[Rfam]
RNA sequence: UUUGAGCGACCCCACCCGCAGCGGCUCCCGCGACCGGUCCUGCCCGUACACGGCCAUCAGCGCGUGCGCCUC
Numbered sequence: 001u002u003u004g005a006g007c008g009a010c011c012c013c014a015c016c017c018g019c020a021g022c023g024g025c026u027c028c029c030g031c032g033a034c035c036g037g038u039c040c041u042g043c044c045c046g047u048a049c050a051c052g053g054c055c056a057u058c059a060g061c062g063c064g065u066g067c068g069c070c071u072c
Base pairs, nucleotide, nucleotide: 014026016024017023029068030067031066035062036061041056042055044053045052046051
Background: ASpks TB sRNA: a 72-nucleotide RNA sequence from Nocardia donostiensis. Taxonomically the source falls in Nocardia (Bacteria, Actinomycetota, Actinomycetes, Mycobacteriales).